Rfam assigns this 79-nucleotide RNA from Nocardia uniformis to the family "Selenocysteine transfer RNA". The base pairs follow the family's consensus structure, which is taken from published work.
RNA sequence: GGGGGCGAUGAGCCUGGUGGCUCACCCUGGCUGUAAACCAGGUGCCUUGCGCAGGGCAGGUUCGAUCCCUGCCGCCCCC
Number, nucleotide and partner (000 for none) at each position: 001g079002g078003g077004g076005g075006c074007g073008a000009u024010g023011a022012g021013c020014c019015u000016g000017g000018u000019g014020g013021c012022u011023c010024a009025c000026c042027c041028u040029g039030g038031c000032u000033g000034u000035a000036a000037a000038c030039c029040a028041g027042g026043u000044g000045c054046c000047u053048u000049g000050c000051g000052c000053a047054g045055g000056g000057c071058a070059g069060g068061u000062u000063c000064g000065a000066u000067c000068c060069c059070u058071g057072c000073c007074g006075c005076c004077c003078c002079c001
Its family is annotated with triplet codon-amino acid adaptor activity in the Gene Ontology.
The match comes from Rfam's covariance-model search (52 bits).
NCBI's taxonomy places the organism under Bacteria, Bacillati, Mycobacteriales, Nocardiaceae, Nocardia.